[Rfam]
The record is a 111-nucleotide RNA sequence from [Clostridium] cellulosi, which matches "PyrR binding site" in Rfam. On this family, see Bonner et al., Nucleic Acids Res 2001: "Molecular recognition of pyr mRNA by the Bacillus subtilis attenuation regulatory protein PyrR". NCBI's taxonomy places the organism under Bacteria, Bacillati, Clostridia, Oscillospiraceae, Ruminiclostridium. Pairs were carried over by alignment from the consensus structure, which is taken from published work.
RNA sequence: AUACCUUUUAAUUCGGUCCUGUGAGGCCGAAAAGGGUUGGUUUUAUCAGUUUUUGGAAUUUAUAAAGAUAAUAAAACAGCCCGGGUAUCAUAACCUGGGCUGUAUUUUUAU
Number, nucleotide and partner (000 for none) at each position: 001a000002u000003a000004c035005c034006u033007u032008u031009u000010a000011a000012u000013u030014c029015g028016g027017u026018c025019c000020u000021g000022u000023g000024a000025g018026g017027c016028c015029g014030a013031a008032a007033a006034g005035g004036g000037u000038u070039g069040g000041u067042u066043u065044u064045a063046u062047c000048a060049g059050u058051u057052u000053u000054u000055g000056g000057a051058a050059u049060u048061u000062a046063u045064a044065a043066a042067g041068a000069u039070a038071a000072u000073a106074a105075a000076a103077c102078a101079g100080c099081c098082c097083g096084g095085g094086u093087a000088u000089c000090a000091u000092a000093a086094c085095c084096u083097g082098g081099g080100c079101u078102g077103u076104a000105u074106u073107u000108u000109u000110a000111u000